[Rfam]
Nucleotides: 079
Stems, first nucleotide, its partner, number of pairs: 002078002005075020
Number, partner (000 for none) and nucleotide at each position: 001000c002078c003077c004000a005075c006074u007073g008072a009071g010070c011069c012068a013067u014066c015065u016064c017063a018062c019061c020060a021059g022058c023057c024056c025000u026000a027000g028000c029000c030000c031000u032000u033000a034000c035000a036000u037000u038000u039000u040000u041000a042000a043000a044000a045000a046000g047000a048000a049000a050000a051000u052000a053000u054000u055000a056024g057023g058022g059021c060020u061019g062018g063017u064016g065015a066014g067013a068012u069011g070010g071009c072008u073007c074006a075005g076000c077003g078002g079000u